[Rfam]
RNA sequence: GUGAAAAGCACAGGAGAGUCCCCAAGGGGCGCCGAAGAAGCAAAUAACACUGGUCGAGUGUUACGAAACUUUCAGGCAAAAGGGCUGCGCUUGGACA
Numbered sequence: 001g002u003g004a005a006a007a008g009c010a011c012a013g014g015a016g017a018g019u020c021c022c023c024a025a026g027g028g029g030c031g032c033c034g035a036a037g038a039a040g041c042a043a044a045u046a047a048c049a050c051u052g053g054u055c056g057a058g059u060g061u062u063a064c065g066a067a068a069c070u071u072u073c074a075g076g077c078a079a080a081a082g083g084g085c086u087g088c089g090c091u092u093g094g095a096c097a
Base pairs, nucleotide, nucleotide: 006092007091008090009089011087012086013085020029021028022027031077032076033075034073035072038071039070040069045063046062047061048060049059050058

The family of this 97-nucleotide RNA sequence from Sedimentibacter saalensis is "Glycine riboswitch aptamer". From the family's description: This family represents the bacterial glycine riboswitch. The match comes from Rfam's covariance-model search (58 bits).